[Rfam]
RNA sequence: UGUCUCCUCUAUUCUCCUCCAAGAAUAGAUUCAGCCCGCUCACUGUAGCGGGUUUUUUUUG
Dot-bracket structure: .......(((((((........)))))))...((((((((......)))))))).......
Numbered sequence: 001u002g003u004c005u006c007c008u009c010u011a012u013u014c015u016c017c018u019c020c021a022a023g024a025a026u027a028g029a030u031u032c033a034g035c036c037c038g039c040u041c042a043c044u045g046u047a048g049c050g051g052g053u054u055u056u057u058u059u060u061g
Stems, first nucleotide, its partner, number of pairs: 008029007033054008